[Rfam]
RNA: c-di-GMP-I riboswitch aptamer
Organism: Clostridium paraputrificum
RNA sequence: UAUAUAUAUUGGCAAAUUUAGAGAAAUCUAAAGACGCAAAGCUAAAGGAGCUAAGGUUUAAAACUAUGCUAGCCAGUUGCUAAA
Numbered sequence: 001u002a003u004a005u006a007u008a009u010u011g012g013c014a015a016a017u018u019u020a021g022a023g024a025a026a027u028c029u030a031a032a033g034a035c036g037c038a039a040a041g042c043u044a045a046a047g048g049a050g051c052u053a054a055g056g057u058u059u060a061a062a063a064c065u066a067u068g069c070u071a072g073c074c075a076g077u078u079g080c081u082a083a084a
Base pairs, nucleotide, nucleotide: 012037013036017032018031019030020029021028022027040078041077042076043075047074048073049070050069051068056064057063058062